This 71-nucleotide sequence from Vicugna pacos belongs to the Rfam family "mir-130 microRNA precursor family". On this family, see Lagos-Quintana et al., Curr Biol 2002: "Identification of tissue-specific microRNAs from mouse".

RNA sequence: AUUUGGCAGUGCCCUUUUUAAAUUGUCAUGACUGCUCCAGUCAUGACAAUUUAAAAAGGGCACUGCCAAAU
Numbered sequence: 001a002u003u004u005g006g007c008a009g010u011g012c013c014c015u016u017u018u019u020a021a022a023u024u025g026u027c028a029u030g031a032c033u034g035c036u037c038c039a040g041u042c043a044u045g046a047c048a049a050u051u052u053a054a055a056a057a058g059g060g061c062a063c064u065g066c067c068a069a070a071u
Stems, first nucleotide, its partner, number of pairs: 004068006011061008021051009
Dot-bracket structure: ...((((((.((((((((..(((((((((.............)))))))))..)))))))).))))))...